[Rfam]
RNA sequence: CCACAUUUCCCUUUGGUUAUUUAGCUAUAUGAGUGCAAGGAUAUCAUAAAGCUAGGUUACCAAAGCUAAAUGUGG
Numbered sequence: 001c002c003a004c005a006u007u008u009c010c011c012u013u014u015g016g017u018u019a020u021u022u023a024g025c026u027a028u029a030u031g032a033g034u035g036c037a038a039g040g041a042u043a044u045c046a047u048a049a050a051g052c053u054a055g056g057u058u059a060c061c062a063a064a065g066c067u068a069a070a071u072g073u074g075g
Stems, first nucleotide, its partner, number of pairs: 001075005007069002011065007019057008028048005
Dot-bracket structure: (((((.((..(((((((.((((((((.(((((...........))))).)))))))).)))))))..)).)))))